[Rfam]
RNA sequence: ACAGAAAGGAGUUGUGAAACUCUGAGAAUAGAAUAGUUUAGUUAAGUCUAGUUUAGUUUUUGUGUUAAGAGGCUUCCUCGUCGGCGGACGAACAAGGAAGUCUCUUUUUU
Numbered sequence: 001a002c003a004g005a006a007a008g009g010a011g012u013u014g015u016g017a018a019a020c021u022c023u024g025a026g027a028a029u030a031g032a033a034u035a036g037u038u039u040a041g042u043u044a045a046g047u048c049u050a051g052u053u054u055a056g057u058u059u060u061u062g063u064g065u066u067a068a069g070a071g072g073c074u075u076c077c078u079c080g081u082c083g084g085c086g087g088a089c090g091a092a093c094a095a096g097g098a099a100g101u102c103u104c105u106u107u108u109u110u
Base pairs, nucleotide, nucleotide: 001063002062003061004060005059009022010021011020012019013018035054036053038051039050040049041048070103071102072101073100074099075098076097077096078095079090080089081088
A member of the RNA family "Bacteroides sRNA BTnc049" from Bacteroides nordii, 110 nucleotides long. Lineage of the source: Bacteria > Bacteroidota > Bacteroidales > Bacteroidaceae > Bacteroides nordii. The base pairs follow the family's consensus structure, which is taken from published work. It is annotated as a small RNA. For this family Rfam cites "A high-resolution transcriptome map identifies small RNA regulation of metabolism in the gut microbe Bacteroides thetaiotaomicron" (Ryan et al., Nat Commun, 2020). The match comes from Rfam's covariance-model search (105 bits).